Source information
The family of this 66-nucleotide RNA from Haemonchus placei is "mir-5928 microRNA precursor family". Rfam links the family to the GO terms RISC complex and miRNA-mediated post-transcriptional gene silencing. A search with the family's covariance model found it, with a score of 62 bits.

RNA sequence: CAGACAUGAAGUAGAGUAGAUUAGUAUGGUCAGCUGAUCUUACUAAUCUACUCUACUUUGAAUUCG
Numbered sequence: 001c002a003g004a005c006a007u008g009a010a011g012u013a014g015a016g017u018a019g020a021u022u023a024g025u026a027u028g029g030u031c032a033g034c035u036g037a038u039c040u041u042a043c044u045a046a047u048c049u050a051c052u053c054u055a056c057u058u059u060g061a062a063u064u065c066g
Base pairs, nucleotide, nucleotide: 001066003064004063007060008059009058010057011056012055013054014053015052016051017050018049019048021046022045023044024043025042026041028039029038030037031036